[Rfam]
RNA sequence: UGAUACCAGGGUCAAAAGGUCUGAAACCACCGGUGCUUGCACAAAGGUGGUGUAAUGGCCUUGGGACCCGCCCCAAUAUGAGCAUAAAAGUGGAGCGUAAGCUUCACGAUAUGCGAAUAGUGGGUAGGAUUGUGGGAGUGCAUUGCACGAAACAAUCCGUAGGUAUCC
Numbered sequence: 001u002g003a004u005a006c007c008a009g010g011g012u013c014a015a016a017a018g019g020u021c022u023g024a025a026a027c028c029a030c031c032g033g034u035g036c037u038u039g040c041a042c043a044a045a046g047g048u049g050g051u052g053u054a055a056u057g058g059c060c061u062u063g064g065g066a067c068c069c070g071c072c073c074c075a076a077u078a079u080g081a082g083c084a085u086a087a088a089a090g091u092g093g094a095g096c097g098u099a100a101g102c103u104u105c106a107c108g109a110u111a112u113g114c115g116a117a118u119a120g121u122g123g124g125u126a127g128g129a130u131u132g133u134g135g136g137a138g139u140g141c142a143u144u145g146c147a148c149g150a151a152a153c154a155a156u157c158c159g160u161a162g163g164u165a166u167c168c
Base pairs, nucleotide, nucleotide: 002167003166004165005164006163007162010068011067012066013065016062017061018060019059020058021057025053026051027050028049029048030047031046033042034041035040072124073123074122075121077119078118079117082114083113084112085111090107091106092105093104094103095102096101127158128157129156130155131154132153133152138148139147140146141145
Source information: Clostridiales-1 RNA: a 168-nucleotide RNA sequence from Mediterraneibacter torques. The base pairs follow the family's consensus structure, which is taken from published work. NCBI's taxonomy places the organism under Bacteria, Bacillati, Bacillota, Clostridia, Mediterraneibacter. The family has 194 seed sequences and 1,172 matches in Rfam 15.1. Rfam classes the family as a small RNA.